RNA sequence: GGUUAAGAGAUGCGGCCCCAAUCCCUCGGAAUGGUCGCACGGCAACCGGUAACCGCUCCGGUGCCCUCCGAGGAAGACCAGGCCUCCACAGUCGUAGAGGUCAAGCGGUCUCG
Numbered sequence: 001g002g003u004u005a006a007g008a009g010a011u012g013c014g015g016c017c018c019c020a021a022u023c024c025c026u027c028g029g030a031a032u033g034g035u036c037g038c039a040c041g042g043c044a045a046c047c048g049g050u051a052a053c054c055g056c057u058c059c060g061g062u063g064c065c066c067u068c069c070g071a072g073g074a075a076g077a078c079c080a081g082g083c084c085u086c087c088a089c090a091g092u093c094g095u096a097g098a099g100g101u102c103a104a105g106c107g108g109u110c111u112c113g
Stems, first nucleotide, its partner, number of pairs: 001079004009040001011039006021032002041065003046061004082102001083100004088095002
A member of the RNA family "SAM (S-adenosyl methionine) riboswitch aptamer" from Tessaracoccus sp. ZS01, 113 nucleotides long. Its Rfam clan is "SAM clan". Taxonomically the source falls in Tessaracoccus (Bacteria, Actinomycetota, Actinomycetes, Propionibacteriales). The base pairs follow the family's consensus structure, which is taken from published work. The match comes from Rfam's covariance-model search (47 bits).